[Rfam]
RNA sequence: AUUACCUUAAGAUAUGUUUGAUAUUCUUGGUUGUUAAUUAAAAAUCGACCAGGAAUCAAACAUAUUAAUAAGGUGGU
Numbered sequence: 001a002u003u004a005c006c007u008u009a010a011g012a013u014a015u016g017u018u019u020g021a022u023a024u025u026c027u028u029g030g031u032u033g034u035u036a037a038u039u040a041a042a043a044a045u046c047g048a049c050c051a052g053g054a055a056u057c058a059a060a061c062a063u064a065u066u067a068a069u070a071a072g073g074u075g076g077u
Stems, first nucleotide, its partner, number of pairs: 005073005011066012024053002029050005
RNA: mir-190 microRNA precursor family